RNA sequence: CAUAAAAUGCAUUUAAGGAACUACAGGUGUGAAAUGUAAUUUAUCGAGCAUAUCACAGCCGUAGUUGCCUUACUGUAUUUGUGA
Numbered sequence: 001c002a003u004a005a006a007a008u009g010c011a012u013u014u015a016a017g018g019a020a021c022u023a024c025a026g027g028u029g030u031g032a033a034a035u036g037u038a039a040u041u042u043a044u045c046g047a048g049c050a051u052a053u054c055a056c057a058g059c060c061g062u063a064g065u066u067g068c069c070u071u072a073c074u075g076u077a078u079u080u081g082u083g084a
Base pairs, nucleotide, nucleotide: 005080006079007078008077009076010075011074016070017069018068019066020065021064022063024061026059028057029056030055031054032053034051035050036049
A member of the RNA family "mir-2944 microRNA precursor family" from Tenebrio molitor, 84 nucleotides long. Pairs were carried over by alignment from the consensus structure, which was predicted with RNAalifold.